[Rfam]
RNA sequence: UGUCAAUAGUCGGUGCCGUUUCGGCGAGCGUAUUUCUUUUGCCUGAAUCCUGAAAGGCGAAAGACGAUG
Numbered sequence: 001u002g003u004c005a006a007u008a009g010u011c012g013g014u015g016c017c018g019u020u021u022c023g024g025c026g027a028g029c030g031u032a033u034u035u036c037u038u039u040u041g042c043c044u045g046a047a048u049c050c051u052g053a054a055a056g057g058c059g060a061a062a063g064a065c066g067a068u069g
Base pairs, nucleotide, nucleotide: 009065010064011063014059015058016057017056019055020054021053022052023051024050026044028042029041030040032038

The family of this 69-nucleotide RNA sequence from Methylocapsa palsarum is "S-element". The organism belongs to Methylocapsa, within Bacteria. The match comes from Rfam's covariance-model search (55 bits). About the family: This family represents a group of S-elements from p42d and related plasmids. The S-element has multiple functions and is believed to act as a negative regulator of repC transcription, be required for efficient replication and act as a translational enhancer of repC. The base pairs follow the family's consensus structure, which is taken from published work. The family's RNA type in Rfam is cis-regulatory element.